[Rfam]
RNA sequence: CCUGUGGAGUGUUAUAGCAAACCGUUGUAGGGAGUAAGUGCCGAAGCGGGACACGAUGAAUCAGGAA
Numbered sequence: 001c002c003u004g005u006g007g008a009g010u011g012u013u014a015u016a017g018c019a020a021a022c023c024g025u026u027g028u029a030g031g032g033a034g035u036a037a038g039u040g041c042c043g044a045a046g047c048g049g050g051a052c053a054c055g056a057u058g059a060a061u062c063a064g065g066a067a
Stems, first nucleotide, its partner, number of pairs: 001065004009054005022049003030042002
RAGATH-18 RNA: a 67-nucleotide sequence from Desmospora sp. 8437. The family's consensus secondary structure is taken from published work. The family's RNA type in Rfam is small RNA.